Caulobacter sRNA CrfA: a 128-nucleotide RNA from Phenylobacterium soli. NCBI's taxonomy places the organism under Bacteria, Pseudomonadati, Pseudomonadota, Caulobacteraceae, Phenylobacterium. Rfam 15.1 lists 41 matches to the family in 41 species. On this family, see Landt et al., Mol Microbiol 2008: "Small non-coding RNAs in Caulobacter crescentus".
RNA sequence: GAGAGACAUGAAGGCGACUAGUCCCGAGGUCUCCGGCGUUUCGGGGAGGAAACGCCCGCUCAUUAGAGCGACUGCUCAAGAUGAGGCCCGCUGCGAUUAUCCCCCGCAGCGGGCCAAAUUUUUGUCAA
Numbered sequence: 001g002a003g004a005g006a007c008a009u010g011a012a013g014g015c016g017a018c019u020a021g022u023c024c025c026g027a028g029g030u031c032u033c034c035g036g037c038g039u040u041u042c043g044g045g046g047a048g049g050a051a052a053c054g055c056c057c058g059c060u061c062a063u064u065a066g067a068g069c070g071a072c073u074g075c076u077c078a079a080g081a082u083g084a085g086g087c088c089c090g091c092u093g094c095g096a097u098u099a100u101c102c103c104c105c106g107c108a109g110c111g112g113g114c115c116a117a118a119u120u121u122u123u124g125u126c127a128a
Base pairs, nucleotide, nucleotide: 001034003033004032005031006030007029009027014025016023035056036055037054038053039052040051041050042049060127062125063124065123066077067076068075069074084119085115086114087113088112089111090110091109092108093107094106095105